[Rfam]
RNA sequence: UGGACAGGUUAUUGUAUUCGACUGUAUUCACGGCGUGAAACAGGGAUUACACUGUUUUUAAACGGAAAAUGGCAAUUAACAUAAUAGACAUCU
Number, nucleotide and partner (000 for none) at each position: 001u000002g092003g091004a000005c000006a000007g000008g000009u087010u086011a085012u084013u083014g082015u081016a000017u079018u078019c000020g077021a076022c000023u074024g073025u000026a000027u000028u072029c071030a070031c000032g000033g000034c064035g063036u062037g058038a057039a056040a055041c054042a053043g052044g000045g000046a000047u000048u000049a000050c000051a000052c043053u042054g041055u040056u039057u038058u037059u000060a000061a000062a036063c035064g034065g000066a000067a000068a000069a000070u030071g029072g028073c024074a023075a000076u021077u020078a018079a017080c000081a015082u014083a013084a012085u011086a010087g009088a000089c000090a000091u003092c002093u000
RNA: MIR6152 microRNA precursor family